[Rfam]
RNA sequence: AUGAUUACAAGGGGAGAGAUCACUUUUGUGGCGCCGACGGAGCAAGUACGUAUGUGCGUAUGAAUCUCUCAGGCAAAAAGACUCUUGUAGGACG
Numbered sequence: 001a002u003g004a005u006u007a008c009a010a011g012g013g014g015a016g017a018g019a020u021c022a023c024u025u026u027u028g029u030g031g032c033g034c035c036g037a038c039g040g041a042g043c044a045a046g047u048a049c050g051u052a053u054g055u056g057c058g059u060a061u062g063a064a065u066c067u068c069u070c071a072g073g074c075a076a077a078a079a080g081a082c083u084c085u086u087g088u089a090g091g092a093c094g
Stems, first nucleotide, its partner, number of pairs: 006089008020031004033074003036070002040068003046061004
Shown here is a 94-nucleotide RNA sequence from Aquisalibacillus elongatus, a member of the family "Glycine riboswitch aptamer". A search with the family's covariance model found it, with a score of 66 bits. Its family is annotated with glycine biosynthetic process in the Gene Ontology.